[Rfam]
RNA sequence: UUCAUCGCGAGGUGAAAUCUGAAGGAAGCCGGAUGCAAAAUGCUGGCCUGACGAACAGGAAGCGGUUAAGGCGGCGCAGCAGGGUAAGGUGGCACAAAUCACCAAAGCCCGAUACUCACACGGAACGCUGUGACGUAAAGCCGACAGGCAUAAGCAGGAAAGUCGCGUGA
Numbered sequence: 001u002u003c004a005u006c007g008c009g010a011g012g013u014g015a016a017a018u019c020u021g022a023a024g025g026a027a028g029c030c031g032g033a034u035g036c037a038a039a040a041u042g043c044u045g046g047c048c049u050g051a052c053g054a055a056c057a058g059g060a061a062g063c064g065g066u067u068a069a070g071g072c073g074g075c076g077c078a079g080c081a082g083g084g085u086a087a088g089g090u091g092g093c094a095c096a097a098a099u100c101a102c103c104a105a106a107g108c109c110c111g112a113u114a115c116u117c118a119c120a121c122g123g124a125a126c127g128c129u130g131u132g133a134c135g136u137a138a139a140g141c142c143g144a145c146a147g148g149c150a151u152a153a154g155c156a157g158g159a160a161a162g163u164c165g166c167g168u169g170a
Base pairs, nucleotide, nucleotide: 001016002015003014004013005012006011029169032166035163036162041156042155043154044153046149047148048147049146050145063143064142065141066140071136072135073134075132076131077130078129079128080127082110083109084108085107088103089102090101091100
Dot-bracket structure: ((((((....))))))............(..(..((....((((.(((((............((((....(((.((((((.((((..((((........))))...))))................)))))).)))...)))).)))))...)))).....))..)..).

Rfam assigns this 170-nucleotide RNA from Escherichia coli to the family "Group II catalytic intron D1-D4-3". The pairing is the family consensus, mapped onto this sequence. It is one of the family's seed sequences.